[Rfam]
RNA sequence: AUCAUCAAAUGAUGAAUUUGGAAAAUAAAUCUUAGGACACCUUCCUACAUAGCUUAAAAAGCUAUGGAUGAGAAGAUUAUUUCCUUUCUGAUGAUGAU
Numbered sequence: 001a002u003c004a005u006c007a008a009a010u011g012a013u014g015a016a017u018u019u020g021g022a023a024a025a026u027a028a029a030u031c032u033u034a035g036g037a038c039a040c041c042u043u044c045c046u047a048c049a050u051a052g053c054u055u056a057a058a059a060a061g062c063u064a065u066g067g068a069u070g071a072g073a074a075g076a077u078u079a080u081u082u083c084c085u086u087u088c089u090g091a092u093g094a095u096g097a098u
Stems, first nucleotide, its partner, number of pairs: 001098007

The family of this 98-nucleotide sequence from Hibiscus syriacus is "Small nucleolar RNA snoR31/Z110/Z27". It scores 61 bits against the family's covariance model. The family has 8 seed sequences and 571 matches in Rfam 15.1. Taxonomically the source falls in Hibiscus (Eukaryota, rosids, malvids, Malvales). For this family Rfam cites "The high diversity of snoRNAs in plants: identification and comparative study of 120 snoRNA genes from Oryza sativa" (Chen et al., Nucleic Acids Res, 2003). About the family: This family contains several related snoRNAs including R31, Z27 and Z110.